The record is a 102-nucleotide RNA sequence from Fusarium sarcochroum, which matches "Small nucleolar RNA snR60/Z15/Z230/Z193/J17" in Rfam. By type it is a C/D-box small nucleolar RNA. Clan: SNORD77 clan. On this family, see Tycowski et al., Curr Biol 2004: "Guide RNAs with 5' caps and novel box C/D snoRNA-like domains for modification of snRNAs in metazoa". Gene Ontology terms of the family: RNA processing and nucleolus. NCBI's taxonomy places the organism under Eukaryota, Dikarya, Hypocreomycetidae, Hypocreales, Fusarium lateritium species complex. Pairs were carried over by alignment from the consensus structure. The match comes from Rfam's covariance-model search (57 bits).
RNA sequence: CCUGGUGUUAUGAUGAUACACAUCCAAUGCAUAGUUCAUCUGAAUCUACUGAAGACAAACUAUACCUUCUUAUUCUUUCGCUCCCAUCUGAUUUACACCAUC
Numbered sequence: 001c002c003u004g005g006u007g008u009u010a011u012g013a014u015g016a017u018a019c020a021c022a023u024c025c026a027a028u029g030c031a032u033a034g035u036u037c038a039u040c041u042g043a044a045u046c047u048a049c050u051g052a053a054g055a056c057a058a059a060c061u062a063u064a065c066c067u068u069c070u071u072a073u074u075c076u077u078u079c080g081c082u083c084c085c086a087u088c089u090g091a092u093u094u095a096c097a098c099c100a101u102c
Base pairs, nucleotide, nucleotide: 004099005098006097007096008095